[Rfam]
RNA sequence: AACCACACUAUCGAUAAAUGGAUUCACCGGUGAUAUGACAUGGUUGUUCCAUCGACGUGGUAUACUAUUAAUUUUUCGUGCGAUGGCUGGUAUGUCAUGUCCUCGUCGUAGGUGAAACAGCCACGUCAUCUCGCAGGUGAAUCCAUUCAUCGAUAGUGUGGUU
Number, nucleotide and partner (000 for none) at each position: 001a163002a162003c161004c160005a159006c158007a157008c000009u155010a154011u153012c152013g151014a150015u149016a000017a147018a146019u145020g000021g143022a142023u141024u140025c139026a138027c137028c136029g000030g134031u133032g132033a131034u000035a129036u128037g127038a126039c125040a000041u123042g122043g121044u120045u119046g118047u117048u116049c000050c000051a113052u112053c000054g101055a100056c099057g000058u000059g000060g095061u094062a093063u092064a091065c090066u089067a088068u000069u000070a000071a000072u000073u000074u000075u086076u085077c000078g000079u000080g000081c000082g000083a000084u000085g076086g075087c000088u067089g066090g065091u064092a063093u062094g061095u060096c000097a000098u000099g056100u055101c054102c000103u000104c000105g000106u000107c000108g000109u000110a000111g000112g052113u051114g000115a000116a048117a047118c046119a045120g044121c043122c042123a041124c000125g039126u038127c037128a036129u035130c000131u033132c032133g031134c030135a000136g028137g027138u026139g025140a024141a023142u022143c021144c000145a019146u018147u017148c000149a015150u014151c013152g012153a011154u010155a009156g000157u007158g006159u005160g004161g003162u002163u001
The family of this 163-nucleotide RNA from Oryza nivara is "MIR807 microRNA precursor family". Lineage of the source: Eukaryota > Streptophyta > Embryophyta > Mesangiospermae > Oryza. On this family, see Luo et al., FEBS Lett 2006: "Rice embryogenic calli express a unique set of microRNAs, suggesting regulatory roles of microRNAs in plant post-embryogenic development". Rfam 15.1 lists 1,514 matches to the family in 13 species.